[Rfam]
About this RNA:
Shown here is a 136-nucleotide sequence from Podarcis lilfordi, a member of the family "Small nucleolar RNA SNORA29". NCBI's taxonomy places the organism under Eukaryota, Bilateria, Chordata, Lepidosauria, Podarcis. On this family, see Huttenhofer et al., EMBO J 2001: "RNomics: an experimental approach that identifies 201 candidates for novel, small, non-messenger RNAs in mouse". Rfam links the family to the GO terms nucleolus and RNA processing. ACA29 is a member of the H/ACA class of snoRNA that guide the sites of modification of uridines to pseudouridines. The match comes from Rfam's covariance-model search (102 bits).
RNA sequence: CUUCCCAUUUGACUACCACUUAUUUGCAUUACAAAAUAAGUGGCUAUGCUUAUGGGAUAAAUAAAUGACUGCCAAAGGUCUGAAGGAGAAUAUGGACAAUGUAUUCAUCCUAUAUGAAAUGGCAGUACAUACUCUC
Numbered sequence: 001c002u003u004c005c006c007a008u009u010u011g012a013c014u015a016c017c018a019c020u021u022a023u024u025u026g027c028a029u030u031a032c033a034a035a036a037u038a039a040g041u042g043g044c045u046a047u048g049c050u051u052a053u054g055g056g057a058u059a060a061a062u063a064a065a066u067g068a069c070u071g072c073c074a075a076a077g078g079u080c081u082g083a084a085g086g087a088g089a090a091u092a093u094g095g096a097c098a099a100u101g102u103a104u105u106c107a108u109c110c111u112a113u114a115u116g117a118a119a120u121g122g123c124a125g126u127a128c129a130u131a132c133u134c135u136c
Stems, first nucleotide, its partner, number of pairs: 004056004016043004071123004087111002090108001